[Rfam]
RNA sequence: GAGCCUCGGGUUAAUAUAAACUAAGAAAAUUAACUCAGGAACAAAU
Numbered sequence: 001g002a003g004c005c006u007c008g009g010g011u012u013a014a015u016a017u018a019a020a021c022u023a024a025g026a027a028a029a030u031u032a033a034c035u036c037a038g039g040a041a042c043a044a045a046u
Base pairs, nucleotide, nucleotide: 005039006038008036009035010034011033012032013031014030015029
A member of the RNA family "Plastid-rpl16 group II-D1 intron", 46 nucleotides long. About the family: Plastid-rpl16 is a non-coding RNA (ncRNA) recognised in plastids. On this family, see Richter et al., Plant Commun 2023: "Retrograde signaling in plants: A critical review focusing on the GUN pathway and beyond".